mir-191 microRNA precursor family: an 87-nucleotide sequence from Erythrocercus mccallii. NCBI's taxonomy places the organism under Eukaryota, Metazoa, Chordata, Dinosauria, Erythrocercus. Rfam links the family to the GO terms RISC complex and miRNA-mediated post-transcriptional gene silencing.
RNA sequence: GGCGGGAGCGCGGGUAACGAAACCCCAGGGCAGCUGGGCUCAUCGGGGACAGCUGCUUUUGGGAUUCCGUUGCCCGCGCUGGCGCCG
Number, nucleotide and partner (000 for none) at each position: 001g000002g000003c000004g000005g000006g000007a000008g000009c078010g077011c076012g075013g074014g000015u000016a000017a070018c069019g068020a000021a066022a065023c000024c062025c061026c000027a060028g059029g000030g056031c055032a054033g053034c052035u051036g050037g000038g000039c000040u000041c000042a000043u000044c000045g000046g000047g000048g000049a000050c036051a035052g034053c033054u032055g031056c030057u000058u000059u028060u027061g025062g024063g000064a000065u022066u021067c000068c019069g018070u017071u000072g000073c000074c013075c012076g011077c010078g009079c000080u000081g000082g000083c000084g000085c000086c000087g000